[Rfam]
RNA sequence: UAAGUUAACCAGACAGUCGCCGCUUCUUUUGAUGUUUAUUAAAAAAACAAAAAAUAGAAGAGGAGGAAAGUCCGGGCUCCAUAGAGCAGAGUGCCAGGUAAUGCCUGGGAGGCGUGAGCCUACGACAAGUGCAACAGAGAGCAAACCGCCGAUGGCCUGAAAUAUGAGGAUCAGGUAAGGGUGAAAUGGUGUGGUAAGAGCACACCGCGCGUUUGGUAACAAGCGUGGCAAGGUAAACUCCACUCGGAGCAAGACCAAAUAGGGGUUCACAUAGUGCGGCUCGUACUGAACUCGGGUAGGUUGCUUGAGCCAUCAAGCGAUUGCUGGCCUAGAUGAAUGACUGUCCACGACAAAACCCGGCUUAUCGGUUAACUUACUUU
Numbered sequence: 001u002a003a004g005u006u007a008a009c010c011a012g013a014c015a016g017u018c019g020c021c022g023c024u025u026c027u028u029u030u031g032a033u034g035u036u037u038a039u040u041a042a043a044a045a046a047a048c049a050a051a052a053a054a055u056a057g058a059a060g061a062g063g064a065g066g067a068a069a070g071u072c073c074g075g076g077c078u079c080c081a082u083a084g085a086g087c088a089g090a091g092u093g094c095c096a097g098g099u100a101a102u103g104c105c106u107g108g109g110a111g112g113c114g115u116g117a118g119c120c121u122a123c124g125a126c127a128a129g130u131g132c133a134a135c136a137g138a139g140a141g142c143a144a145a146c147c148g149c150c151g152a153u154g155g156c157c158u159g160a161a162a163u164a165u166g167a168g169g170a171u172c173a174g175g176u177a178a179g180g181g182u183g184a185a186a187u188g189g190u191g192u193g194g195u196a197a198g199a200g201c202a203c204a205c206c207g208c209g210c211g212u213u214u215g216g217u218a219a220c221a222a223g224c225g226u227g228g229c230a231a232g233g234u235a236a237a238c239u240c241c242a243c244u245c246g247g248a249g250c251a252a253g254a255c256c257a258a259a260u261a262g263g264g265g266u267u268c269a270c271a272u273a274g275u276g277c278g279g280c281u282c283g284u285a286c287u288g289a290a291c292u293c294g295g296g297u298a299g300g301u302u303g304c305u306u307g308a309g310c311c312a313u314c315a316a317g318c319g320a321u322u323g324c325u326g327g328c329c330u331a332g333a334u335g336a337a338u339g340a341c342u343g344u345c346c347a348c349g350a351c352a353a354a355a356c357c358c359g360g361c362u363u364a365u366c367g368g369u370u371a372a373c374u375u376a377c378u379u380u
Stems, first nucleotide, its partner, number of pairs: 001376010011365001012345007020063002023060005068363003072360005077249004084282004089245005094108005109123001110121004124240002129238002131234002146180002148176003153173003157169002188206006207229001208227008253302004263293006273287005309328004314323003
Shown here is a 380-nucleotide RNA sequence from Candidatus Williamhamiltonella defendens, a member of the family "Bacterial RNase P class A". The family's RNA type in Rfam is ribozyme. Pairs were carried over by alignment from the consensus structure, which is taken from published work. Lineage of the source: Bacteria > Pseudomonadati > aphid secondary symbionts > Candidatus Williamhamiltonella > Candidatus Williamhamiltonella defendens.